A member of the RNA family "Bacillus sRNA ncr1015" from Paenibacillus lactis, 119 nucleotides long. The family's consensus secondary structure is taken from published work. The source organism's lineage runs through Bacteria, Bacilli, Caryophanales, Paenibacillus and Paenibacillus lactis. It is one of the family's seed sequences. On this family, see Irnov et al., Nucleic Acids Res 2010: "Identification of regulatory RNAs in Bacillus subtilis".
RNA sequence: AUGUAAGAUAAGAUAUUUAUGACCUUUUACACAAUCUCAGUCGUGGUCUGAUUAUAUCACCGCGUCUGUUUAUAUGCAAUACAAAAGAACCUGGUCCAUCGACUCAGGUUCUUUUUUUU
Numbered sequence: 001a002u003g004u005a006a007g008a009u010a011a012g013a014u015a016u017u018u019a020u021g022a023c024c025u026u027u028u029a030c031a032c033a034a035u036c037u038c039a040g041u042c043g044u045g046g047u048c049u050g051a052u053u054a055u056a057u058c059a060c061c062g063c064g065u066c067u068g069u070u071u072a073u074a075u076g077c078a079a080u081a082c083a084a085a086a087g088a089a090c091c092u093g094g095u096c097c098a099u100c101g102a103c104u105c106a107g108g109u110u111c112u113u114u115u116u117u118u119u
Base pairs, nucleotide, nucleotide: 034073035072038068039065042062043061083115084114085113086112087111088110089109090108091107092106093105094104